[Rfam]
RNA sequence: GUUGUGACUAUAGUUGCAACAAAGGACCGACGUAUGUUCAAAAACGGUUGAACAUCCUAAUCUCCCUCUAGGUUUCUCAGGCCUAAGGAGACGGUUC
Number, nucleotide and partner (000 for none) at each position: 001g020002u019003u018004g017005u016006g015007a014008c013009u000010a000011u000012a000013g008014u007015u006016g005017c004018a003019a002020c001021a000022a000023a000024g097025g096026a095027c094028c093029g092030a000031c000032g000033u000034a000035u054036g053037u052038u051039c050040a049041a048042a000043a000044a000045c000046g000047g000048u041049u040050g039051a038052a037053c036054a035055u000056c000057c000058u000059a000060a000061u091062c090063u089064c088065c087066c000067u000068c000069u085070a084071g083072g082073u081074u080075u000076c000077u000078c000079a000080g074081g073082c072083c071084u070085a069086a000087g065088g064089a063090g062091a061092c029093g028094g027095u026096u025097c024
RNA: Anti-Q RNA
Organism: Enterococcus rivorum